[Rfam]
RNA sequence: CCCUCUGGUGCCUUCUGAACUGACAGCUGUUGGAUGAAACAAACUGGCUCAGUUCAGCAGGAACAGGAG
Numbered sequence: 001c002c003c004u005c006u007g008g009u010g011c012c013u014u015c016u017g018a019a020c021u022g023a024c025a026g027c028u029g030u031u032g033g034a035u036g037a038a039a040c041a042a043a044c045u046g047g048c049u050c051a052g053u054u055c056a057g058c059a060g061g062a063a064c065a066g067g068a069g
Base pairs, nucleotide, nucleotide: 003069004068005067006066008064009063011061012060013059015057016056017055018054019053020052021051022050023049027046029044030043
Source information:
mir-24 microRNA precursor family: a 69-nucleotide RNA sequence from Sphaeramia orbicularis. Rfam 15.1 lists 1,372 matches to the family in 601 species. Taxonomically the source falls in Sphaeramia (Eukaryota, Eumetazoa, Bilateria, Neoteleostei). Its family is annotated with RISC complex and miRNA-mediated post-transcriptional gene silencing in the Gene Ontology. This family represents the microRNA (miRNA) mir-24 family. miRNAs are transcribed as ~70nt precursors (modelled here) and subsequently processed by the Dicer enzyme to give a ~22nt product.